Rfam assigns this 100-nucleotide sequence from [Clostridium] symbiosum to the family "TPP riboswitch aptamer (THI element)".
[Rfam]
RNA sequence: AUAUUCAAGCAGGGGGACUACCUUGUAGUUGAGAAGGUUAAAACCUGACCCUUUGAACCUGUUGGCUAAUACCAACGCAGGGAGCUAAAGAAUACAGAUU
Numbered sequence: 001a002u003a004u005u006c007a008a009g010c011a012g013g014g015g016g017a018c019u020a021c022c023u024u025g026u027a028g029u030u031g032a033g034a035a036g037g038u039u040a041a042a043a044c045c046u047g048a049c050c051c052u053u054u055g056a057a058c059c060u061g062u063u064g065g066c067u068a069a070u071a072c073c074a075a076c077g078c079a080g081g082g083a084g085c086u087a088a089a090g091a092a093u094a095c096a097g098a099u100u
Base pairs, nucleotide, nucleotide: 008086009085010084011052012051013050014049016046017029018028019027020026021025036045037044038043058081059080060079061078062075063074064073065072